[Rfam]
RNA: c-di-GMP-I riboswitch aptamer
Organism: Eubacterium sp. CAG:156
RNA sequence: AAAUAUAUUUAGCAAAGCAGGUGAAAACCUGUGACGCAAAGCUAUAGGGCCUUUAAAAUGGCAGCCAGUUGCACUU
Numbered sequence: 001a002a003a004u005a006u007a008u009u010u011a012g013c014a015a016a017g018c019a020g021g022u023g024a025a026a027a028c029c030u031g032u033g034a035c036g037c038a039a040a041g042c043u044a045u046a047g048g049g050c051c052u053u054u055a056a057a058a059u060g061g062c063a064g065c066c067a068g069u070u071g072c073a074c075u076u
Stems, first nucleotide, its partner, number of pairs: 012037002017032006040070004047066002049062003